[Rfam]
RNA sequence: AAAAAGGGCUUCUGUUGUGAGCAACACACGUAGAGCAGCCUGAUUGCUCUACGUGCAGAAUCGACAUCAAGAGAUUUCGGAAGCAUGAUUUUUUGGUACUUGGGCAGCUGGUGAUCGUUGGUCCUGGCGCCCGU
Numbered sequence: 001a002a003a004a005a006g007g008g009c010u011u012c013u014g015u016u017g018u019g020a021g022c023a024a025c026a027c028a029c030g031u032a033g034a035g036c037a038g039c040c041u042g043a044u045u046g047c048u049c050u051a052c053g054u055g056c057a058g059a060a061u062c063g064a065c066a067u068c069a070a071g072a073g074a075u076u077u078c079g080g081a082a083g084c085a086u087g088a089u090u091u092u093u094u095g096g097u098a099c100u101u102g103g104g105c106a107g108c109u110g111g112u113g114a115u116c117g118u119u120g121g122u123c124c125u126g127g128c129g130c131c132c133g134u
Stems, first nucleotide, its partner, number of pairs: 008084005013026005027055012056079001058077005102132004107128005113123004

Shown here is a 134-nucleotide RNA sequence from Myotis brandtii, a member of the family "U11 spliceosomal RNA".
Rfam 15.1 lists 2,595 matches to the family in 1,202 species.
The family's RNA type in Rfam is spliceosomal small nuclear RNA.
A search with the family's covariance model found it, with a score of 125 bits.